The family of this 126-nucleotide sequence from Brassica oleracea is "MIR9563 microRNA precursor family". The source organism's lineage runs through Eukaryota, Mesangiospermae, Gunneridae, malvids and Brassica oleracea.

[Rfam]
RNA sequence: GAAAUAUAAGAAACCGUCUCUUAACUUUUAACUAAAAAAAAACUAAGAACCGGUUGUUAAAUAAGAUAUUUAACAACCAGUUCUUAGCUUUUUUAGUUAAAAGUUAAGAGACGGUUUAUUAUAUUC
Numbered sequence: 001g002a003a004a005u006a007u008a009a010g011a012a013a014c015c016g017u018c019u020c021u022u023a024a025c026u027u028u029u030a031a032c033u034a035a036a037a038a039a040a041a042a043c044u045a046a047g048a049a050c051c052g053g054u055u056g057u058u059a060a061a062u063a064a065g066a067u068a069u070u071u072a073a074c075a076a077c078c079a080g081u082u083c084u085u086a087g088c089u090u091u092u093u094u095a096g097u098u099a100a101a102a103g104u105u106a107a108g109a110g111a112c113g114g115u116u117u118a119u120u121a122u123a124u125u126c
Base pairs, nucleotide, nucleotide: 003125004124005123006122007121008120009119011117012116013115014114015113016112017111018110019109020108021107022106023105024104025103026102027101028100029099030098031097032096033095034094035093036092037091038090039089043087044086045085046084047083048082049081